[Rfam]
RNA sequence: AGAGGAAUAUUUAAAUCUGUGGAUGGGAAUUUUUCCCAUUAUUGGUUACACUGUAGUGCAAAAUAAUUCCUGGCUCUUACCAGCUGCAUAGCCAAUUUGUGCCAUAGUGCUGUUGCUUUAUGUAGUUGAAGAACAUGC
Numbered sequence: 001a002g003a004g005g006a007a008u009a010u011u012u013a014a015a016u017c018u019g020u021g022g023a024u025g026g027g028a029a030u031u032u033u034u035c036c037c038a039u040u041a042u043u044g045g046u047u048a049c050a051c052u053g054u055a056g057u058g059c060a061a062a063a064u065a066a067u068u069c070c071u072g073g074c075u076c077u078u079a080c081c082a083g084c085u086g087c088a089u090a091g092c093c094a095a096u097u098u099g100u101g102c103c104a105u106a107g108u109g110c111u112g113u114u115g116c117u118u119u120a121u122g123u124a125g126u127u128g129a130a131g132a133a134c135a136u137g138c
Stems, first nucleotide, its partner, number of pairs: 002059001004057001007054003014047004022040006067133003071129001072127004077122001083119001086116003089112004

The record is a 138-nucleotide RNA from Jaculus jaculus, which matches "Small nucleolar RNA SNORA46" in Rfam. It scores 86 bits against the family's covariance model. Rfam describes the family as follows. ACA46 is a member of the H/ACA class of snoRNA that guide the sites of modification of uridines to pseudouridines. The family's RNA type in Rfam is H/ACA-box small nucleolar RNA.